Rfam assigns this 72-nucleotide RNA from Romeriopsis navalis to the family "tRNA".
RNA sequence: CAUCCUGUGGCGCAACGGUAGCGCAUCUGUCUUACAAACAGAGGGUUGUAGGUUCGAAUCCUACCAGGAUGA
Numbered sequence: 001c002a003u004c005c006u007g008u009g010g011c012g013c014a015a016c017g018g019u020a021g022c023g024c025a026u027c028u029g030u031c032u033u034a035c036a037a038a039c040a041g042a043g044g045g046u047u048g049u050a051g052g053u054u055c056g057a058a059u060c061c062u063a064c065c066a067g068g069a070u071g072a
Base pairs, nucleotide, nucleotide: 001071002070003069004068005067006066007065010024011023012022013021026042027041028040029039030038048064049063050062051061052060
Rfam links the family to the GO term triplet codon-amino acid adaptor activity. Rfam's curators write: Transfer RNA (tRNA) molecules are approximately 80 nucleotides in length. The match comes from Rfam's covariance-model search (74 bits).